This 75-nucleotide RNA from Amborella trichopoda belongs to the Rfam family "Plastid-ycf2 5UTR RNA". The match comes from Rfam's covariance-model search (80 bits). Rfam describes the family as follows. Plastid ycf2 is a non-coding RNA (ncRNA) recognised in plastids. It was found in the prime untranslated region (5UTR) of ycf2 genes, it presents a tRNA-like motif which suggests it can be involved in mRNA maturation, particularly involved in defining the precise 5' end of the transcript.
RNA sequence: GCGCAUCCAACAGGAAUUGAGCCUACAAAUUUGCCAAUUAUGAAUUAGGCGCUUUAACCAUUCAGCCAUGGAUGC
Numbered sequence: 001g002c003g004c005a006u007c008c009a010a011c012a013g014g015a016a017u018u019g020a021g022c023c024u025a026c027a028a029a030u031u032u033g034c035c036a037a038u039u040a041u042g043a044a045u046u047a048g049g050c051g052c053u054u055u056a057a058c059c060a061u062u063c064a065g066c067c068a069u070g071g072a073u074g075c
Base pairs, nucleotide, nucleotide: 003075004074005073006072007071008070012024013023014022040069041068042067045065046064048062049061051059
Dot-bracket structure: ..((((((...(((.......)))...............(((..((.((.(.......).)).)).)))))))))
Rfam 15.1 lists 3,521 matches to the family in 417 species.